[Rfam]
RNA sequence: CAGAUCAGGGAUCGCCCUCCGUCAGCGCGUUGCGCCCACGGGGGCGCUCUUG
Numbered sequence: 001c002a003g004a005u006c007a008g009g010g011a012u013c014g015c016c017c018u019c020c021g022u023c024a025g026c027g028c029g030u031u032g033c034g035c036c037c038a039c040g041g042g043g044g045c046g047c048u049c050u051u052g
Stems, first nucleotide, its partner, number of pairs: 016044007025035004
RNA: ffh sRNA